[Rfam]
RNA sequence: CUGCGGUGAUGAGCCUUGGCUAGAUUGAUCUGGUAUUGCUACCCUCUGGGGAGAGCUCUGACCAGGGAAUGAUCUCAGCUUAAUCUUCUCUCUGAGCAG
Numbered sequence: 001c002u003g004c005g006g007u008g009a010u011g012a013g014c015c016u017u018g019g020c021u022a023g024a025u026u027g028a029u030c031u032g033g034u035a036u037u038g039c040u041a042c043c044c045u046c047u048g049g050g051g052a053g054a055g056c057u058c059u060g061a062c063c064a065g066g067g068a069a070u071g072a073u074c075u076c077a078g079c080u081u082a083a084u085c086u087u088c089u090c091u092c093u094g095a096g097c098a099g
Stems, first nucleotide, its partner, number of pairs: 003097002038056003
The family of this 99-nucleotide sequence from Oreochromis aureus is "Z30 small nucleolar RNA". It scores 75 bits against the family's covariance model. Lineage of the source: Eukaryota > Actinopteri > Neoteleostei > Percomorphaceae > Oreochromis. Rfam links the family to the GO terms RNA processing and nucleolus.